[Rfam]
RNA sequence: GCCCUGUGGUUGCUGGGCUCUGCUGCCUGUGCAGUGCUCCGGUCGGGACACGGGCCCACAGUGAUGCUGUGACUGACGCAGGGAGGCUGGGAGCCCUGGGCAGCCUCCUCAGCCCCGUCACAGGCACAGCC
Numbered sequence: 001g002c003c004c005u006g007u008g009g010u011u012g013c014u015g016g017g018c019u020c021u022g023c024u025g026c027c028u029g030u031g032c033a034g035u036g037c038u039c040c041g042g043u044c045g046g047g048a049c050a051c052g053g054g055c056c057c058a059c060a061g062u063g064a065u066g067c068u069g070u071g072a073c074u075g076a077c078g079c080a081g082g083g084a085g086g087c088u089g090g091g092a093g094c095c096c097u098g099g100g101c102a103g104c105c106u107c108c109u110c111a112g113c114c115c116c117g118u119c120a121c122a123g124g125c126a127c128a129g130c131c
Stems, first nucleotide, its partner, number of pairs: 001056001003054002007048001010045001012043006020034004067123001069121005078113002081109003085105005
RNA: Small nucleolar RNA SNORA84